[Rfam]
RNA sequence: GGCUUUCUUCGCGCGGGAGCUCGACCCGCGACUGCCGAGAUGACCGGGUUCGUCGACGCCCACCGCGACCAGUUCGGGGUCGAGCCGAUCUGCAAUGAGCUGCAGUUCGCCCCG
Numbered sequence: 001g002g003c004u005u006u007c008u009u010c011g012c013g014c015g016g017g018a019g020c021u022c023g024a025c026c027c028g029c030g031a032c033u034g035c036c037g038a039g040a041u042g043a044c045c046g047g048g049u050u051c052g053u054c055g056a057c058g059c060c061c062a063c064c065g066c067g068a069c070c071a072g073u074u075c076g077g078g079g080u081c082g083a084g085c086c087g088a089u090c091u092g093c094a095a096u097g098a099g100c101u102g103c104a105g106u107u108c109g110c111c112c113c114g
Base pairs, nucleotide, nucleotide: 013029014028015027016026017025075114076113077112078111079110086109087108090105091104092103093102094101